Shown here is a 76-nucleotide RNA from Alligator mississippiensis, a member of the family "Mammalian CPEB3 ribozyme".
From the family's description: The mammalian CPEB3 ribozyme is a self cleaving RNA located in the second intron of the CPEB3 gene which belongs to a family of genes regulating messenger RNA polyadenylation.
Nucleotides: 076
Stems, first nucleotide, its partner, number of pairs: 015044004021076004026071001028040003048065006
Number, partner (000 for none) and nucleotide at each position: 001000a002000g003000u004000c005000a006000c007000a008000a009000g010000c011000u012000c013000a014000a015044g016043g017042c018041c019000a020000u021076a022075g023074c024073a025000a026071a027000u028040g029039u030038g031000c032000u033000c034000a035000u036000g037000g038030u039029g040028u041018g042017g043016c044015c045000u046000g047000u048065c049064a050063g051062a052061u053060u054000c055000c056000a057000a058000c059000a060053a061052a062051u063050c064049u065048g066000c067000a068000c069000a070000u071026u072000c073024u074023g075022c076021u